[Rfam]
RNA: Plastid-ycf2 5UTR RNA
RNA sequence: GUGCAUCCAGCGGGAAUUGAACCCGUGACUUCCCAAUUAUGAAUGAAAUGCUUUUAUCAUUCAGCCAUGGACG
Number, nucleotide and partner (000 for none) at each position: 001g000002u000003g000004c073005a000006u071007c070008c069009a000010g026011c025012g024013g023014g022015a000016a000017u000018u000019g000020a000021a000022c014023c013024c012025g011026u010027g000028a000029c000030u000031u000032c000033c000034c000035a000036a000037u000038u000039a068040u067041g066042a000043a000044u064045g000046a000047a061048a060049u059050g058051c000052u000053u000054u000055u000056a000057u000058c050059a049060u048061u047062c000063a000064g044065c000066c041067a040068u039069g008070g007071a006072c000073g004